[Rfam]
RNA sequence: GAUUGGCGUACAACAGUGGGGACGUGUCCCCGGCGUGGAGCCAAGAGGAAUGAGCCUCGCCAACAGCAGCCGUUUACGGCUGGAAAGGGGAAAAAUAAAGCGCAGGGCAAUGGGGUUUGGUAGGAACUUUUUUUCGAAGAAGCCCGGCCCG
Number, nucleotide and partner (000 for none) at each position: 001g000002a000003u044004u043005g042006g041007c040008g000009u000010a000011c038012a000013a036014c035015a000016g000017u000018g031019g030020g029021g028022a027023c000024g000025u000026g000027u022028c021029c020030c019031c018032g000033g000034c000035g014036u013037g000038g011039a000040g007041c006042c005043a004044a003045g000046a000047g055048g000049a000050a000051u000052g000053a000054g000055c047056c000057u091058c090059g000060c088061c087062a000063a000064c000065a000066g000067c082068a081069g080070c079071c078072g000073u000074u000075u000076a000077c000078g071079g070080c069081u068082g067083g000084a000085a000086a000087g061088g060089g000090g058091a057092a000093a000094a000095a000096u000097a000098a000099a000100g000101c000102g000103c000104a000105g150106g149107g148108c147109a000110a000111u000112g000113g144114g143115g000116u141117u140118u139119g000120g000121u000122a000123g134124g133125a132126a131127c000128u000129u000130u000131u126132u125133u124134u123135c000136g000137a000138a000139g118140a117141a116142g000143c114144c113145c000146g000147g108148c107149c106150c105151g000